[Rfam]
RNA sequence: ACGACUGGGCAUUGCCCCCAGUUUCCCCCAAAUUUGGGCAUUGUCCCUGGGUCUUCCAACGGACUGGGCGUUGCCCCCGGACACUGCGGACUGCCCCCGGGGUCUCGCUCACCUUCAGCG
Numbered sequence: 001a002c003g004a005c006u007g008g009g010c011a012u013u014g015c016c017c018c019c020a021g022u023u024u025c026c027c028c029c030a031a032a033u034u035u036g037g038g039c040a041u042u043g044u045c046c047c048u049g050g051g052u053c054u055u056c057c058a059a060c061g062g063a064c065u066g067g068g069c070g071u072u073g074c075c076c077c078c079g080g081a082c083a084c085u086g087c088g089g090a091c092u093g094c095c096c097c098c099g100g101g102g103u104c105u106c107g108c109u110c111a112c113c114u115u116c117a118g119c120g
Base pairs, nucleotide, nucleotide: 003023004022005021007017008016009015010014027038028037029036030035043064044063045062046061049057050056051055065107066106067105068104075102076101077100078099079098080097